[Rfam]
RNA sequence: UGAGUGGGCUAGAUUAGAGAUUGGCCCCUCAGAUGAAUGAUGACAAGGGCCUGUUAUGUCUCUAACCGCAGAAGAUAAAAGUAAGAUUAUUAUUGAGUUUGGGAGUAACGCC
Numbered sequence: 001u002g003a004g005u006g007g008g009c010u011a012g013a014u015u016a017g018a019g020a021u022u023g024g025c026c027c028c029u030c031a032g033a034u035g036a037a038u039g040a041u042g043a044c045a046a047g048g049g050c051c052u053g054u055u056a057u058g059u060c061u062c063u064a065a066c067c068g069c070a071g072a073a074g075a076u077a078a079a080a081g082u083a084a085g086a087u088u089a090u091u092a093u094u095g096a097g098u099u100u101g102g103g104a105g106u107a108a109c110g111c112c
Stems, first nucleotide, its partner, number of pairs: 007026006046063004
Dot-bracket structure: ......((((((........))))))...................((((..........)))).................................................
RNA: Ribosomal S15 leader